[Rfam]
RNA sequence: AGAGUAGGCGCAGGCGGUUGCGGAUACCUCUCUACGGGAGGUCAUCUGAGGAAAGUCCGGACUCCCAAAAGACCAGACUUGCUGGGUAACGCCCAGUGCGAGCGAUCGUGAGGAUAGUGCCACAGAAACAUACCGCCGAUGGAAAGGAUAGAGGAGGAAGGAUAUGAAGGAUAAAUUGAUCUUUUUUUAGCCUUCAUCCUUUAGCCCUUAGCCUUUCACAGGUAAGGGUGCAAAGGUGCGGUAAGAGCGCACCAGCAACAUCGUGAGGUGUUGGCUCGGUAAACCCCGGUUGGGAGCAAGGUCGGAGGAACAAGGGUUGGUCUUUUUCCUGUUCCGCUUUAUGGCACCGCUAGAGGCGUUUGGUAACAAACGUCCCAGAUAGAUAACUGCCCUCUGAAUGCUUAGCAUUGAGAGAACAGAACCCGGCUUAUGUCCUGCUCUUCCC
Numbered sequence: 001a002g003a004g005u006a007g008g009c010g011c012a013g014g015c016g017g018u019u020g021c022g023g024a025u026a027c028c029u030c031u032c033u034a035c036g037g038g039a040g041g042u043c044a045u046c047u048g049a050g051g052a053a054a055g056u057c058c059g060g061a062c063u064c065c066c067a068a069a070a071g072a073c074c075a076g077a078c079u080u081g082c083u084g085g086g087u088a089a090c091g092c093c094c095a096g097u098g099c100g101a102g103c104g105a106u107c108g109u110g111a112g113g114a115u116a117g118u119g120c121c122a123c124a125g126a127a128a129c130a131u132a133c134c135g136c137c138g139a140u141g142g143a144a145a146g147g148a149u150a151g152a153g154g155a156g157g158a159a160g161g162a163u164a165u166g167a168a169g170g171a172u173a174a175a176u177u178g179a180u181c182u183u184u185u186u187u188u189a190g191c192c193u194u195c196a197u198c199c200u201u202u203a204g205c206c207c208u209u210a211g212c213c214u215u216u217c218a219c220a221g222g223u224a225a226g227g228g229u230g231c232a233a234a235g236g237u238g239c240g241g242u243a244a245g246a247g248c249g250c251a252c253c254a255g256c257a258a259c260a261u262c263g264u265g266a267g268g269u270g271u272u273g274g275c276u277c278g279g280u281a282a283a284c285c286c287c288g289g290u291u292g293g294g295a296g297c298a299a300g301g302u303c304g305g306a307g308g309a310a311c312a313a314g315g316g317u318u319g320g321u322c323u324u325u326u327u328c329c330u331g332u333u334c335c336g337c338u339u340u341a342u343g344g345c346a347c348c349g350c351u352a353g354a355g356g357c358g359u360u361u362g363g364u365a366a367c368a369a370a371c372g373u374c375c376c377a378g379a380u381a382g383a384u385a386a387c388u389g390c391c392c393u394c395u396g397a398a399u400g401c402u403u404a405g406c407a408u409u410g411a412g413a414g415a416a417c418a419g420a421a422c423c424c425g426g427c428u429u430a431u432g433u434c435c436u437g438c439u440c441u442u443c444c445c
Stems, first nucleotide, its partner, number of pairs: 001441008010433003013391007021048005028041002053429003057426004062296004071324002076291003080288002082096005097111001098109004112286002117284002119280003133227002135223003140218004235253006255275001256273007300348003303344001307335006315329002319325001355374008
A member of the RNA family "Bacterial RNase P class A" from Oscillatoria sp. FACHB-1407, 445 nucleotides long. Rfam links the family to the GO terms dimeric ribonuclease P complex, ribonuclease P activity and tRNA processing. The family's RNA type in Rfam is ribozyme. The organism belongs to Oscillatoria, within Bacteria.